The family of this 101-nucleotide RNA from Protaetiibacter larvae is "Glycine riboswitch aptamer". It scores 36 bits against the family's covariance model.
RNA sequence: GCCGCUCUGAAAAGAGGCUUCCGCGCUCAGCGGCGGCCCGCCCAUGGUGAAAGCGACCACUCGUCGCGAAGCUCUCAGGCAUCGAUGACAGAGGGGGAGUU
Numbered sequence: 001g002c003c004g005c006u007c008u009g010a011a012a013a014g015a016g017g018c019u020u021c022c023g024c025g026c027u028c029a030g031c032g033g034c035g036g037c038c039c040g041c042c043c044a045u046g047g048u049g050a051a052a053g054c055g056a057c058c059a060c061u062c063g064u065c066g067c068g069a070a071g072c073u074c075u076c077a078g079g080c081a082u083c084g085a086u087g088a089c090a091g092a093g094g095g096g097g098a099g100u101u
Base pairs, nucleotide, nucleotide: 002096003095005093006092007091008090009089016038017037018036019035040080041079042078044075047074049072053067054066055065056064